[Rfam]
RNA sequence: GCCGCCUUAGCUCAGUUGGUUAGAGCGCUUGAUUGUGGAUCAAGAGGUCCCUGGUUCGAGACCAGGAGGUGGUA
Numbered sequence: 001g002c003c004g005c006c007u008u009a010g011c012u013c014a015g016u017u018g019g020u021u022a023g024a025g026c027g028c029u030u031g032a033u034u035g036u037g038g039a040u041c042a043a044g045a046g047g048u049c050c051c052u053g054g055u056u057c058g059a060g061a062c063c064a065g066g067a068g069g070u071g072g073u074a
Stems, first nucleotide, its partner, number of pairs: 001073007010026004028044005050066005
RNA: tRNA